This 116-nucleotide RNA from Dichanthelium oligosanthes belongs to the Rfam family "mir-393 microRNA precursor family". Gene Ontology terms of the family: miRNA-mediated post-transcriptional gene silencing and RISC complex.
RNA sequence: AGUGGAAAAUUCCAAAGGGAUUGCACUGAUCUUGUCCUCGCGCGCAGAUAGCAGCCAUGCACACGUAUGUGCUCGGCGGAAGGUGAGAUCAAUGCGAUCCCUUUGGAGUCCUCCAC
Numbered sequence: 001a002g003u004g005g006a007a008a009a010u011u012c013c014a015a016a017g018g019g020a021u022u023g024c025a026c027u028g029a030u031c032u033u034g035u036c037c038u039c040g041c042g043c044g045c046a047g048a049u050a051g052c053a054g055c056c057a058u059g060c061a062c063a064c065g066u067a068u069g070u071g072c073u074c075g076g077c078g079g080a081a082g083g084u085g086a087g088a089u090c091a092a093u094g095c096g097a098u099c100c101c102u103u104u105g106g107a108g109u110c111c112u113c114c115a116c
Base pairs, nucleotide, nucleotide: 002116003115004114005113006112009109010108011107012106013105014104015103016102017101018100019099020098021097023095024094025093028090029089030088031087032086036083037082038081

Lineage of the source: Eukaryota > Streptophyta > Tracheophyta > Petrosaviidae > Dichanthelium. The match comes from Rfam's covariance-model search (62 bits).